Rfam assigns this 93-nucleotide sequence from Microcebus murinus to the family "mir-1388 microRNA precursor family". On this family, see Warren et al., Nature 2010: "The genome of a songbird". The base pairs follow the family's consensus structure, which was predicted with RNAalifold.
RNA sequence: CCCCGGGCAGCACCUCCAGGGCUGUCCAACCUGAGAAUGGUGAGUCUCCAGGGUCAAUCUCAGGUUCGUCAGCCCGUGAGGUGCCGCCCCUUC
Dot-bracket structure: ....((((.(((((((..((.(((.(.(((((((((.((...............)).))))))))).).))).))..))))))).).)))...